[Rfam]
RNA sequence: UUUAUAUUUGUAAAAUCAAAAUGAGAAAAAUAAUAUUAAAUAACAAUUGGUGGUGGAUUUCGCAACUUCAUAAGUCGUGAAAGAACUCCUCUUGUUUAUAAAAUCAAAGGCCUGUC
Dot-bracket structure: ...................................(((.(.(((((..((.(.....(((..(.(((.....))).)...)))..).))..)))))).)))...............
Numbered sequence: 001u002u003u004a005u006a007u008u009u010g011u012a013a014a015a016u017c018a019a020a021a022u023g024a025g026a027a028a029a030a031u032a033a034u035a036u037u038a039a040a041u042a043a044c045a046a047u048u049g050g051u052g053g054u055g056g057a058u059u060u061c062g063c064a065a066c067u068u069c070a071u072a073a074g075u076c077g078u079g080a081a082a083g084a085a086c087u088c089c090u091c092u093u094g095u096u097u098a099u100a101a102a103a104u105c106a107a108a109g110g111c112c113u114g115u116c
Stems, first nucleotide, its partner, number of pairs: 036101003040097001042096005049089002052086001058083003063077001065075003